[Rfam]
RNA: U4 spliceosomal RNA
Organism: Neogale vison
RNA sequence: AGCUUUGCUCAGUGGCAGUAUCGUAGCCAAUGAGGUUUAUCCGAGGCGCGAUUAUUGCUAAUUAAAGUAUGUCAGAUAAAAUUCCUGCAGUCAUGCCAUUAUAUAAGUAAAGAGAUAAAUGGAAUUAAAAUGCUUUA
Numbered sequence: 001a002g003c004u005u006u007g008c009u010c011a012g013u014g015g016c017a018g019u020a021u022c023g024u025a026g027c028c029a030a031u032g033a034g035g036u037u038u039a040u041c042c043g044a045g046g047c048g049c050g051a052u053u054a055u056u057g058c059u060a061a062u063u064a065a066a067g068u069a070u071g072u073c074a075g076a077u078a079a080a081a082u083u084c085c086u087g088c089a090g091u092c093a094u095g096c097c098a099u100u101a102u103a104u105a106a107g108u109a110a111a112g113a114g115a116u117a118a119a120u121g122g123a124a125u126u127a128a129a130a131u132g133c134u135u136u137a
Base pairs, nucleotide, nucleotide: 020052021051022050023049024048026047027046028045034042035041083113084112086109087108088107093102094101095100126137127136128135129134